[Rfam]
RNA sequence: UUGCAAGUUCAAGGCCAUAGUAGAAGUGCUCACAGCACAGCUCUAUCAGAUUCCAACAAAUCUCUGAAUUCUGCU
Numbered sequence: 001u002u003g004c005a006a007g008u009u010c011a012a013g014g015c016c017a018u019a020g021u022a023g024a025a026g027u028g029c030u031c032a033c034a035g036c037a038c039a040g041c042u043c044u045a046u047c048a049g050a051u052u053c054c055a056a057c058a059a060a061u062c063u064c065u066g067a068a069u070u071c072u073g074c075u
Base pairs, nucleotide, nucleotide: 013042014041015040019075020074021073022072023071024070025069026038027037028036048063049062050061051060052059

Mammalian CPEB3 ribozyme: a 75-nucleotide sequence from Crocodylus porosus.
Pairs were carried over by alignment from the consensus structure, which is taken from published work.
Gene Ontology term of the family: RNA nuclease activity.
The organism belongs to Crocodylus, within Eukaryota.